[Rfam]
RNA sequence: AACCAGUGAUGUUAAUGAUUCUGCCAAAUGAAAUGGCAAUGAUUUCACCCAUAUACCGUUCCACUUUUAUUCUGAGGUU
Numbered sequence: 001a002a003c004c005a006g007u008g009a010u011g012u013u014a015a016u017g018a019u020u021c022u023g024c025c026a027a028a029u030g031a032a033a034u035g036g037c038a039a040u041g042a043u044u045u046c047a048c049c050c051a052u053a054u055a056c057c058g059u060u061c062c063a064c065u066u067u068u069a070u071u072c073u074g075a076g077g078u079u
Base pairs, nucleotide, nucleotide: 001079002078003077004076
Notes
Rfam assigns this 79-nucleotide sequence from Monodelphis domestica to the family "Small nucleolar RNA SNORD47". The organism belongs to Monodelphis, within Eukaryota. The family has 20 seed sequences and 755 matches in Rfam 15.1. Gene Ontology terms of the family: nucleolus and RNA processing. The family's RNA type in Rfam is C/D-box small nucleolar RNA. The literature on the family includes a 1996 paper in Cell by Kiss-Laszlo et al., "Site-specific ribose methylation of preribosomal RNA: a novel function for small nucleolar RNAs".